[Rfam]
RNA sequence: CGAGCCGGCCAGGUGAUCGCGGUCCGAGAGGAUCGAGGAAAGUCCGGACUCCGCAGAGCGAGGUGGUGGGUAACACCCACCCGGGGCGACCCGCGGGACAGUGCCACAGAAAGCAGACCGCCUCUCUCGGAGAGGUCAGGGUGAAACGGUGGUGUAAGAGACCACCAGCACCCCAGGUGACUGGGGUGGCUCGGUAAACCCCACCUGGAGCAAGGCCAAGAAGACCGUGCCCGGCACGGUCGCGGGAGUGCCUGAGGGCUGCUCGCCCGAGCUCCCGGGUAGGCCGCACCAGGCCGCUGGCGACAGCGGUCGCAGAUGGAUGAUCACCGGCCCGCGAGGGUCACAGAAUCCGGCUUAUCGGCCGGCUCGUCCU
Numbered sequence: 001c002g003a004g005c006c007g008g009c010c011a012g013g014u015g016a017u018c019g020c021g022g023u024c025c026g027a028g029a030g031g032a033u034c035g036a037g038g039a040a041a042g043u044c045c046g047g048a049c050u051c052c053g054c055a056g057a058g059c060g061a062g063g064u065g066g067u068g069g070g071u072a073a074c075a076c077c078c079a080c081c082c083g084g085g086g087c088g089a090c091c092c093g094c095g096g097g098a099c100a101g102u103g104c105c106a107c108a109g110a111a112a113g114c115a116g117a118c119c120g121c122c123u124c125u126c127u128c129g130g131a132g133a134g135g136u137c138a139g140g141g142u143g144a145a146a147c148g149g150u151g152g153u154g155u156a157a158g159a160g161a162c163c164a165c166c167a168g169c170a171c172c173c174c175a176g177g178u179g180a181c182u183g184g185g186g187u188g189g190c191u192c193g194g195u196a197a198a199c200c201c202c203a204c205c206u207g208g209a210g211c212a213a214g215g216c217c218a219a220g221a222a223g224a225c226c227g228u229g230c231c232c233g234g235c236a237c238g239g240u241c242g243c244g245g246g247a248g249u250g251c252c253u254g255a256g257g258g259c260u261g262c263u264c265g266c267c268c269g270a271g272c273u274c275c276c277g278g279g280u281a282g283g284c285c286g287c288a289c290c291a292g293g294c295c296g297c298u299g300g301c302g303a304c305a306g307c308g309g310u311c312g313c314a315g316a317u318g319g320a321u322g323a324u325c326a327c328c329g330g331c332c333c334g335c336g337a338g339g340g341u342c343a344c345a346g347a348a349u350c351c352g353g354c355u356u357a358u359c360g361g362c363c364g365g366c367u368c369g370u371c372c373u
Stems, first nucleotide, its partner, number of pairs: 001369010011358001012328007020035006040356003044353005049210004056264004061206005066080005081095001082093004096201002101199002103195003118140002120136007148166006168190001169188008214285004244276006256268004292311008
This 373-nucleotide RNA sequence from Desertihabitans brevis belongs to the Rfam family "Bacterial RNase P class A". The base pairs follow the family's consensus structure, which is taken from published work. Taxonomically the source falls in Desertihabitans (Bacteria, Actinomycetes, Propionibacteriales, Propionibacteriaceae). By type it is a ribozyme. Its Rfam clan is "RNaseP clan". A search with the family's covariance model found it, with a score of 290 bits.